[Rfam]
RNA sequence: AACCCCAUUCCUGAGAAUGGGCACCAUUGAUCCUGGUGCCCAGAAAUUCUUAAUGGGGCUGCAUUGAGACACAGGUUAUGUUUCCAUCACAGACUCCCAAACUUAUUGCUGUGAUGACAACGAGACCUGUACCUUUU
Numbered sequence: 001a002a003c004c005c006c007a008u009u010c011c012u013g014a015g016a017a018u019g020g021g022c023a024c025c026a027u028u029g030a031u032c033c034u035g036g037u038g039c040c041c042a043g044a045a046a047u048u049c050u051u052a053a054u055g056g057g058g059c060u061g062c063a064u065u066g067a068g069a070c071a072c073a074g075g076u077u078a079u080g081u082u083u084c085c086a087u088c089a090c091a092g093a094c095u096c097c098c099a100a101a102c103u104u105a106u107u108g109c110u111g112u113g114a115u116g117a118c119a120a121c122g123a124g125a126c127c128u129g130u131a132c133c134u135u136u137u
Stems, first nucleotide, its partner, number of pairs: 003058002006055003018042007071130005085116008